[Rfam]
RNA sequence: GUGCUUUUUGCAUUUUGCAGAUUUGCACUACAGAACGUGUUCCAUUAGGAAACCGUGUUAAAUGGACUGUAGUGCAAAUUCUGCAAAAUGCAAAAAGCAC
Numbered sequence: 001g002u003g004c005u006u007u008u009u010g011c012a013u014u015u016u017g018c019a020g021a022u023u024u025g026c027a028c029u030a031c032a033g034a035a036c037g038u039g040u041u042c043c044a045u046u047a048g049g050a051a052a053c054c055g056u057g058u059u060a061a062a063u064g065g066a067c068u069g070u071a072g073u074g075c076a077a078a079u080u081c082u083g084c085a086a087a088a089u090g091c092a093a094a095a096a097g098c099a100c
Stems, first nucleotide, its partner, number of pairs: 003098019022078007030070004